[Rfam]
RNA sequence: UCGAGCGGAUCGCCUAAUCCUGCCGCCGCACGAGGUUCCGUACGACUUCGCCGGCAGGGGCGGGGGACCCAAGUUUGUGGGCAUCGGUGACGGUGUCCUUGGGGUGAAGUUGAGCGGCCGUCGCCAUCAGACGGCCUUUCAGCCGGGUGAACUCUUCCUACCCGAACCCGACAGCUGACCUCGUAGGCGUUCGGAGAGGCUUC
Numbered sequence: 001u002c003g004a005g006c007g008g009a010u011c012g013c014c015u016a017a018u019c020c021u022g023c024c025g026c027c028g029c030a031c032g033a034g035g036u037u038c039c040g041u042a043c044g045a046c047u048u049c050g051c052c053g054g055c056a057g058g059g060g061c062g063g064g065g066g067a068c069c070c071a072a073g074u075u076u077g078u079g080g081g082c083a084u085c086g087g088u089g090a091c092g093g094u095g096u097c098c099u100u101g102g103g104g105u106g107a108a109g110u111u112g113a114g115c116g117g118c119c120g121u122c123g124c125c126a127u128c129a130g131a132c133g134g135c136c137u138u139u140c141a142g143c144c145g146g147g148u149g150a151a152c153u154c155u156u157c158c159u160a161c162c163c164g165a166a167c168c169c170g171a172c173a174g175c176u177g178a179c180c181u182c183g184u185a186g187g188c189g190u191u192c193g194g195a196g197a198g199g200c201u202u203c
Stems, first nucleotide, its partner, number of pairs: 011189004018059008060184006070101004102169003110142004145163004
RNA: c-di-AMP riboswitch aptamer (ydaO/yuaA leader)